[Rfam]
RNA sequence: GCCCGAAAAUGGCAAAACAUUCGAAAGGAUGUGGCGCAAAGCUACUGGCCUAAGUCCUCUUACAGGAUAUGGUUGCAGGGUUGCCGGA
Numbered sequence: 001g002c003c004c005g006a007a008a009a010u011g012g013c014a015a016a017a018c019a020u021u022c023g024a025a026a027g028g029a030u031g032u033g034g035c036g037c038a039a040a041g042c043u044a045c046u047g048g049c050c051u052a053a054g055u056c057c058u059c060u061u062a063c064a065g066g067a068u069a070u071g072g073u074u075g076c077a078g079g080g081u082u083g084c085c086g087g088a
Stems, first nucleotide, its partner, number of pairs: 012037002017032006040082004045078003048073003055067004
RNA: c-di-GMP-I riboswitch aptamer